[Rfam]
RNA sequence: AAAAAUAUAAAAGCGCCAGAUCUUUAAAUUAUUUAAAGAAGACGAGGACUAGAGUUAUCGAAUUUUCGGCGGAUGCUCUAGAGGUGGUCACAACCUAAAAAACAUACAAAAUCUAAAAGUGAUUUUAGGUACAAAUAUGUUUUAGUGACUAUUU
Number, nucleotide and partner (000 for none) at each position: 001a000002a000003a000004a000005a000006u000007a000008u000009a000010a000011a000012a000013g000014c000015g000016c000017c000018a000019g000020a000021u039022c038023u037024u036025u035026a034027a033028a000029u000030u000031a000032u000033u027034u026035a025036a024037a023038g022039a021040a000041g000042a000043c000044g000045a000046g000047g000048a000049c081050u080051a079052g078053a077054g000055u000056u000057a000058u069059c068060g067061a066062a000063u000064u000065u000066u061067c060068g059069g058070c000071g000072g000073a000074u000075g000076c000077u053078c052079u051080a050081g049082a096083g095084g094085u093086g000087g091088u000089c000090a000091c087092a000093a085094c084095c083096u082097a000098a000099a000100a142101a141102a140103c139104a138105u000106a000107c000108a000109a000110a000111a000112u129113c128114u127115a126116a125117a124118a123119g000120u000121g000122a000123u118124u117125u116126u115127a114128g113129g112130u000131a000132c000133a000134a000135a000136u000137a000138u104139g103140u102141u101142u100143u000144a000145g000146u000147g000148a000149c000150u000151a000152u000153u000154u000
Annotation:
glmS glucosamine-6-phosphate activated ribozyme aptamer: a 154-nucleotide RNA from Hypnocyclicus thermotrophus. The source organism's lineage runs through Bacteria, Fusobacteriota, Fusobacteriia, Fusobacteriaceae and Hypnocyclicus. By type it is a riboswitch. Gene Ontology terms of the family: catalytic activity and regulation of gene expression. The match comes from Rfam's covariance-model search (102 bits).